Rfam assigns this 98-nucleotide RNA from Salinibacterium xinjiangense to the family "mraW RNA". NCBI's taxonomy places the organism under Bacteria, Actinomycetota, Actinomycetes, Microbacteriaceae, Salinibacterium. It scores 61 bits against the family's covariance model. It is annotated as a cis-regulatory element.

[Rfam]
RNA sequence: UCACACUCGUUGACGCUGACUCCCAGCCGUACGCCCUGGCUUUCUUCCCCGAUGCCAGGUCGCACCGGAUGGGGAUCAGCGUCAACGAUGAAGUCCUU
Numbered sequence: 001u002c003a004c005a006c007u008c009g010u011u012g013a014c015g016c017u018g019a020c021u022c023c024c025a026g027c028c029g030u031a032c033g034c035c036c037u038g039g040c041u042u043u044c045u046u047c048c049c050c051g052a053u054g055c056c057a058g059g060u061c062g063c064a065c066c067g068g069a070u071g072g073g074g075a076u077c078a079g080c081g082u083c084a085a086c087g088a089u090g091a092a093g094u095c096c097u098u
Stems, first nucleotide, its partner, number of pairs: 010085007018077002021074005027068003032062002035059006042052001